[Rfam]
RNA sequence: GUGAGGGUGAUUGAAUGUGGGACGUAGAGGAAGCUUGGAACGAAACCGCGAGCCGAUGGACAAGAACUGGAUACGAGGCGCUUCCGAUCAAAGCGAGCAGGACUGACUCUGCAAAGUCUUUGUAAGCAAGGAAAGGGGCGUAAAUCCGGCAGUUUUUCGGCGAAGUAUCGCGU
Numbered sequence: 001g002u003g004a005g006g007g008u009g010a011u012u013g014a015a016u017g018u019g020g021g022a023c024g025u026a027g028a029g030g031a032a033g034c035u036u037g038g039a040a041c042g043a044a045a046c047c048g049c050g051a052g053c054c055g056a057u058g059g060a061c062a063a064g065a066a067c068u069g070g071a072u073a074c075g076a077g078g079c080g081c082u083u084c085c086g087a088u089c090a091a092a093g094c095g096a097g098c099a100g101g102a103c104u105g106a107c108u109c110u111g112c113a114a115a116g117u118c119u120u121u122g123u124a125a126g127c128a129a130g131g132a133a134a135g136g137g138g139c140g141u142a143a144a145u146c147c148g149g150c151a152g153u154u155u156u157u158c159g160g161c162g163a164a165g166u167a168u169c170g171c172g173u
Base pairs, nucleotide, nucleotide: 033173034172036170037169040166041165046160047159048158050156051154052153053152055150067149068148069147070146071145072144078141079140080139082137084136085135088132089131091119093117094116097112098111099110100109
Group II catalytic intron D1-D4-3: a 173-nucleotide RNA from Leptospirillum ferriphilum. The source organism's lineage runs through Bacteria, Nitrospirota, Nitrospiraceae, Leptospirillum sp. Group III and Leptospirillum ferriphilum.